The record is a 75-nucleotide sequence from Crocuta crocuta, which matches "Small nucleolar RNA SNORD28" in Rfam. The match comes from Rfam's covariance-model search (94 bits). On this family, see Tycowski et al., Nature 1996: "A mammalian gene with introns instead of exons generating stable RNA products". Pairs were carried over by alignment from the consensus structure, which was predicted with PFOLD. Gene Ontology terms of the family: RNA processing and nucleolus. It is annotated as a C/D-box small nucleolar RNA. Lineage of the source: Eukaryota > Tetrapoda > Carnivora > Hyaenidae > Crocuta.

[Rfam]
RNA sequence: GUCAGAUGAUUUGAAUAGAUUUGCUGAUCCUCUGUGAGGUGCAACAAUUAAUAGCAUGUUAGAGUUCUGAUGGCA
Numbered sequence: 001g002u003c004a005g006a007u008g009a010u011u012u013g014a015a016u017a018g019a020u021u022u023g024c025u026g027a028u029c030c031u032c033u034g035u036g037a038g039g040u041g042c043a044a045c046a047a048u049u050a051a052u053a054g055c056a057u058g059u060u061a062g063a064g065u066u067c068u069g070a071u072g073g074c075a
Stems, first nucleotide, its partner, number of pairs: 001074004